RNA sequence: GCCGAGCAGGUAGCGACUGCUUGUGACCCGAGCGGGGCAUUAAGGUGGUGUGGAUGCCAACUGUGGCGCUUGGGCCUGGGUCUGGUGUCGCAAUCCACGGCCCGCCCGUUCCAAGUUGCGAAGUGGGCUGUUGGGCGCUUUGGCGAAGGCCUUGGCGUCCCGGCACCUAGAGCGGCGGGCAAUGCGUGAGGCUGGUUUCACAGAGCAGCGAAUACCGCCCGCUUCCAACGGUGGGAGGAUAACGGGCCGCUGCGCUCCUGGCCCGCUUAGGCUCAAGUGCCCUCUCUGGCAGACCACCAUCCUU
Numbered sequence: 001g002c003c004g005a006g007c008a009g010g011u012a013g014c015g016a017c018u019g020c021u022u023g024u025g026a027c028c029c030g031a032g033c034g035g036g037g038c039a040u041u042a043a044g045g046u047g048g049u050g051u052g053g054a055u056g057c058c059a060a061c062u063g064u065g066g067c068g069c070u071u072g073g074g075c076c077u078g079g080g081u082c083u084g085g086u087g088u089c090g091c092a093a094u095c096c097a098c099g100g101c102c103c104g105c106c107c108g109u110u111c112c113a114a115g116u117u118g119c120g121a122a123g124u125g126g127g128c129u130g131u132u133g134g135g136c137g138c139u140u141u142g143g144c145g146a147a148g149g150c151c152u153u154g155g156c157g158u159c160c161c162g163g164c165a166c167c168u169a170g171a172g173c174g175g176c177g178g179g180c181a182a183u184g185c186g187u188g189a190g191g192c193u194g195g196u197u198u199c200a201c202a203g204a205g206c207a208g209c210g211a212a213u214a215c216c217g218c219c220c221g222c223u224u225c226c227a228a229c230g231g232u233g234g235g236a237g238g239a240u241a242a243c244g245g246g247c248c249g250c251u252g253c254g255c256u257c258c259u260g261g262c263c264c265g266c267u268u269a270g271g272c273u274c275a276a277g278u279g280c281c282c283u284c285u286c287u288g289g290c291a292g293a294c295c296a297c298c299a300u301c302c303u304u
Stems, first nucleotide, its partner, number of pairs: 001038003004022006028035002042303001044301007052294001055291005060285001063282001065280001067279010078264005084258002087256001089254002098249007106238002109236005115229004120225005125166001127164004133160007142151003167172001174219005183212001185210003192203003
RNA: Plant signal recognition particle RNA
Organism: Panicum miliaceum